[Rfam]
RNA: Bacterial RNase P class A
RNA sequence: GCAGUGUUCCGGUCUGUCGCUUGCGACAAUAUAUCGCAAGAGGAAAGUCCGGGCAGCAUAGGACGCUCCACUUCUGAAAAUGGAAGCUGUCGGCGACGGCAGGAUAAGACAGAAGAAAAUAACCGCCGUACUUAACAGUACCGGUAAGGGUGAGAAGGUGGUGUAAGAGACCACCGGCUGCCAGGUGACUGGCAGGCCGUGUCUUCUGGAGGCUGCAAGUUCAUGUAAACCAUCGUCCGAGGGUUGUCCGCCCGAUUUCAACAACGAUGGAGGGUGGAACGCUUGAGCCGUGGAGUGAUUCACGGAGUAGAUAAAUGACAGACGACGCCAUGUCCUGCAAAGGCUUUGGCGGAUACAGAACCCGGCUUACAGGAGCACUGCUUUC
Dot-bracket structure: ((((((((((((((((((.(((((((.(...).)))))))....[[[.[[[[[((((...[[[[.((((((((((......)))))..((((....)))).((...(((((...........((((((((((....)))).))))..)).......((((((.......)))))).((((((((....))))))).)..))))))))))))))))...((((.......(((((......((((.]]]]))))............)))))......)))).......(((((((....)))))))...........))))))).....................................]]]]]]]].).))))))))))....
Numbered sequence: 001g002c003a004g005u006g007u008u009c010c011g012g013u014c015u016g017u018c019g020c021u022u023g024c025g026a027c028a029a030u031a032u033a034u035c036g037c038a039a040g041a042g043g044a045a046a047g048u049c050c051g052g053g054c055a056g057c058a059u060a061g062g063a064c065g066c067u068c069c070a071c072u073u074c075u076g077a078a079a080a081u082g083g084a085a086g087c088u089g090u091c092g093g094c095g096a097c098g099g100c101a102g103g104a105u106a107a108g109a110c111a112g113a114a115g116a117a118a119a120u121a122a123c124c125g126c127c128g129u130a131c132u133u134a135a136c137a138g139u140a141c142c143g144g145u146a147a148g149g150g151u152g153a154g155a156a157g158g159u160g161g162u163g164u165a166a167g168a169g170a171c172c173a174c175c176g177g178c179u180g181c182c183a184g185g186u187g188a189c190u191g192g193c194a195g196g197c198c199g200u201g202u203c204u205u206c207u208g209g210a211g212g213c214u215g216c217a218a219g220u221u222c223a224u225g226u227a228a229a230c231c232a233u234c235g236u237c238c239g240a241g242g243g244u245u246g247u248c249c250g251c252c253c254g255a256u257u258u259c260a261a262c263a264a265c266g267a268u269g270g271a272g273g274g275u276g277g278a279a280c281g282c283u284u285g286a287g288c289c290g291u292g293g294a295g296u297g298a299u300u301c302a303c304g305g306a307g308u309a310g311a312u313a314a315a316u317g318a319c320a321g322a323c324g325a326c327g328c329c330a331u332g333u334c335c336u337g338c339a340a341a342g343g344c345u346u347u348g349g350c351g352g353a354u355a356c357a358g359a360a361c362c363c364g365g366c367u368u369a370c371a372g373g374a375g376c377a378c379u380g381c382u383u384u385c
Stems, first nucleotide, its partner, number of pairs: 001381010011370001012323007020040007028032001045368003049365005054215004061249004066211005071086005089100004102206002107204005123149002125145004129140004157175006177197001178195007219280004230270005241253004288305007